Rfam assigns this 73-nucleotide RNA from Haloactinopolyspora alba to the family "6C RNA". Its family is annotated with sporulation in the Gene Ontology. Taxonomically the source falls in Haloactinopolyspora (Bacteria, Bacillati, Actinomycetota, Jiangellaceae). Pairs were carried over by alignment from the consensus structure, which is taken from published work.
[Rfam]
RNA sequence: CGUGACCCGGCCCGCCCCCCUGGCCGGGUCUCUCACACGGCUCCUGCCACCCACCCGGCAGGAGCCGUGUCCA
Dot-bracket structure: .(.(((((((((.........))))))))).)...(((((((((((((........)))))))))))))....